Alphaproteobacteria transfer-messenger RNA: a 345-nucleotide RNA from Parasphingopyxis marina. The match comes from Rfam's covariance-model search (233 bits).
RNA sequence: CCACUUCCCAUUAACGUGCGAGCCCCUAUAUAGGGGCUGCCGGUUUCGGCCGGCUAUGGCGAUAAACGGUGCCGUGCAAUAGGCACAGCGGACCCGGGGGCAGUACCCGGCGGCUCCACCAUAAAUCGCGAAAUUUCGCGGUUUAAGACGGGGCCGAACCAGGAUCGACGUGUGUUGAAAGACGGCAACUUUCGCCCGGCCUGAAUGCGCCGUAAAACCGUUCACAACUCAUAAGAGCCAACGAUAACGAAGCUCUUGCGAUUGCUGCGUAACCCAAGGCCUAACGGUCUAAGUUACUAAGACAAAAGCGCGGUUGGACCGCACCGGGCACCAGAAGCGGAAACC
Dot-bracket structure: ......................................(((((......)))))...(((((......((.((((........(((.(((...(((((.......)))))(((((((................................)))))))............)))))).......))))..))..)))))((((.[[[....)))).........]]]......................................................................................((((....[[[[))))..........]]]].....